This 77-nucleotide RNA from Silurus meridionalis belongs to the Rfam family "Small nucleolar RNA SNORD83". The family's RNA type in Rfam is C/D-box small nucleolar RNA. Rfam 15.1 lists 1,393 matches to the family in 644 species. On this family, see Jady and Kiss, Nucleic Acids Res 2000: "Characterisation of the U83 and U84 small nucleolar RNAs: two novel 2'-O-ribose methylation guide RNAs that lack complementarities to ribosomal RNAs". Taxonomically the source falls in Silurus (Eukaryota, Actinopterygii, Otomorpha, Otophysi). Pairs were carried over by alignment from the consensus structure, which was predicted with PFOLD.
RNA sequence: GCCACAUGAUGUUAUCUAGACGGCAUUAGCGCUCUGUGCGAUGGUGACCUCCGAUCUAUCACCCGAGACUGAUGGUU
Numbered sequence: 001g002c003c004a005c006a007u008g009a010u011g012u013u014a015u016c017u018a019g020a021c022g023g024c025a026u027u028a029g030c031g032c033u034c035u036g037u038g039c040g041a042u043g044g045u046g047a048c049c050u051c052c053g054a055u056c057u058a059u060c061a062c063c064c065g066a067g068a069c070u071g072a073u074g075g076u077u
Stems, first nucleotide, its partner, number of pairs: 001076004029039004